[Rfam]
Background: A member of the RNA family "Phenylalanine leader peptide" from bacteria symbiont BFo2 of Frankliniella occidentalis, 129 nucleotides long. A reference for the family is Zurawski et al. (1978), "Nucleotide sequence of the leader region of the phenylalanine operon of Escherichia coli", Proc Natl Acad Sci U S A. By type it is a cis-regulatory leader. A search with the family's covariance model found it, with a score of 58 bits.
RNA sequence: CUCUACUUAUGAAUACCGUUUUUUUUCGUUUCUUUUUUUUCUUUAGCCUCUAAACAAUUGAGGCUUUUGCGCAUGAGAUAAGAAACGAAAAAACGCGCGAAAAGCCUCCAUUAAGGAGGCUUUGUCGUU
Numbered sequence: 001c002u003c004u005a006c007u008u009a010u011g012a013a014u015a016c017c018g019u020u021u022u023u024u025u026u027c028g029u030u031u032c033u034u035u036u037u038u039u040u041c042u043u044u045a046g047c048c049u050c051u052a053a054a055c056a057a058u059u060g061a062g063g064c065u066u067u068u069g070c071g072c073a074u075g076a077g078a079u080a081a082g083a084a085a086c087g088a089a090a091a092a093a094c095g096c097g098c099g100a101a102a103a104g105c106c107u108c109c110a111u112u113a114a115g116g117a118g119g120c121u122u123u124g125u126c127g128u129u
Stems, first nucleotide, its partner, number of pairs: 017097003021093014036078004045059001062072001065069001101123009